[Rfam]
RNA sequence: GUUGAAGCUCCAUCUACGAAUGGAUAAGAUUAGGGUCUUAGUGUAUAUAUAGGAGGUUUUUAAAGUAACGGAGCAAUACUAAUUUCUUGGUAGAACAAGAAGUGGGUUAUUGCUCCCUUUU
Number, nucleotide and partner (000 for none) at each position: 001g000002u000003u000004g000005a000006a000007g000008c000009u024010c023011c022012a021013u020014c000015u000016a000017c000018g000019a000020a013021u012022g011023g010024a009025u000026a000027a000028g000029a000030u000031u000032a000033g000034g000035g000036u000037c000038u000039u000040a000041g000042u000043g000044u000045a000046u000047a000048u000049a000050u000051a000052g000053g000054a000055g000056g000057u000058u000059u000060u000061u000062a000063a000064a000065g000066u000067a119068a118069c000070g116071g115072a114073g113074c112075a111076a110077u109078a108079c000080u000081a000082a103083u000084u101085u100086c099087u098088u097089g000090g000091u000092a000093g000094a000095a000096c000097a088098a087099g086100a085101a084102g000103u082104g000105g000106g000107u000108u078109a077110u076111u075112g074113c073114u072115c071116c070117c000118u068119u067120u000121u000
This 121-nucleotide sequence from Hypseocharis bilobata belongs to the Rfam family "Plastid-psbA-1 3UTR RNA". Pairs were carried over by alignment from the consensus structure, which was predicted with LocARNA. A reference for the family is Richter et al. (2023), "Retrograde signaling in plants: A critical review focusing on the GUN pathway and beyond", Plant Commun. The family's RNA type in Rfam is cis-regulatory element. Rfam's curators put it in the seed alignment. Lineage of the source: Eukaryota > Embryophyta > Tracheophyta > Gunneridae > Hypseocharis. Plastid psbA-1 is a non-coding RNA (ncRNA) present in plastids. It was identified in inverted repeat sequences in the 3 prime untranslate region (3UTR) of photosystem II quinone-binding protein (psbA).